[Rfam]
RNA sequence: AAUGCGAAACCUGAAAAGCAUAUAAUAGAGUAAGGA
Numbered sequence: 001a002a003u004g005c006g007a008a009a010c011c012u013g014a015a016a017a018g019c020a021u022a023u024a025a026u027a028g029a030g031u032a033a034g035g036a
Base pairs, nucleotide, nucleotide: 002021003020004019005018010035011034012033
DUF805b RNA: a 36-nucleotide sequence from Tenacibaculum sp. Bg11-29. Pairs were carried over by alignment from the consensus structure, which is taken from published work. The family's RNA type in Rfam is cis-regulatory element.